The family of this 128-nucleotide sequence from Hydrogenispora ethanolica is "Ribosomal protein L20 leader". The base pairs follow the family's consensus structure, which was predicted with CMfinder. The source organism's lineage runs through Bacteria, Bacillati, Bacillota and Hydrogenispora. The match comes from Rfam's covariance-model search (63 bits). Rfam's curators write: This family is a putative r-protein leader autoregulatory structure found in B. subtilis and other low-GC Gram-positive bacteria. It is located in the 5' untranslated regions of mRNAs encoding initiation factor 3 followed by ribosomal proteins L35 and L20 (infC-rpmI-rplT).
[Rfam]
RNA sequence: CAAAUGAAGCAGAAGCCAUCCGCUUCUCACCUAAGAACCCUCGGUUCUUUGGGUUUAUAAAGUCAAGAAAUAUGUCUGUUUGACUUUUCAGAGCGGGUGGAAGAACAACCCCGCUUUUUUUGUUGAAU
Number, nucleotide and partner (000 for none) at each position: 001c000002a000003a000004a000005u000006g000007a000008a000009g000010c000011a027012g026013a025014a024015g023016c022017c000018a000019u000020c000021c000022g016023c015024u014025u013026c012027u011028c000029a054030c053031c052032u000033a000034a048035g047036a046037a045038c044039c000040c000041u000042c000043g000044g038045u037046u036047c035048u034049u000050u000051g000052g031053g030054u029055u000056u000057a000058u000059a000060a000061a000062g000063u000064c000065a000066a000067g000068a000069a000070a000071u000072a000073u000074g000075u000076c000077u000078g000079u000080u000081u000082g000083a000084c000085u000086u000087u000088u000089c000090a000091g000092a115093g114094c113095g112096g111097g110098u107099g106100g000101a000102a000103g000104a000105a000106c099107a098108a000109c000110c097111c096112c095113g094114c093115u092116u000117u000118u000119u000120u000121u000122g000123u000124u000125g000126a000127a000128u000